[Rfam]
RNA sequence: CAGCAGCAGCCGCCGCGGCACCAGCGCAGCACGAGGGAACCGGGGAACCACCACCUUGGGGUGAAUCGGGUCGAACCUGACCCGUAGGAGACCUUCCUGCUCCGAACCCGUCAGCUAACCCGGUAGGCGAGAGGGAAGGAAAGG
Numbered sequence: 001c002a003g004c005a006g007c008a009g010c011c012g013c014c015g016c017g018g019c020a021c022c023a024g025c026g027c028a029g030c031a032c033g034a035g036g037g038a039a040c041c042g043g044g045g046a047a048c049c050a051c052c053a054c055c056u057u058g059g060g061g062u063g064a065a066u067c068g069g070g071u072c073g074a075a076c077c078u079g080a081c082c083c084g085u086a087g088g089a090g091a092c093c094u095u096c097c098u099g100c101u102c103c104g105a106a107c108c109c110g111u112c113a114g115c116u117a118a119c120c121c122g123g124u125a126g127g128c129g130a131g132a133g134g135g136a137a138g139g140a141a142a143g144g
Stems, first nucleotide, its partner, number of pairs: 011129004019037001039124006049058002059109003067084004087103004